[Rfam]
RNA: mir-87 microRNA precursor family
RNA sequence: GUCAGCACGGCCUGAAAUUUUGUCUCGAACCUCUCUAGUCAAGAAGGUGAGCAAAGUUUCAGGUGUAGCUGACC
Numbered sequence: 001g002u003c004a005g006c007a008c009g010g011c012c013u014g015a016a017a018u019u020u021u022g023u024c025u026c027g028a029a030c031c032u033c034u035c036u037a038g039u040c041a042a043g044a045a046g047g048u049g050a051g052c053a054a055a056g057u058u059u060c061a062g063g064u065g066u067a068g069c070u071g072a073c074c
Base pairs, nucleotide, nucleotide: 002072003071004070005069006068010064011063012062013061014060015059017057018056019055020054021053024051025050026049027048030047031046032045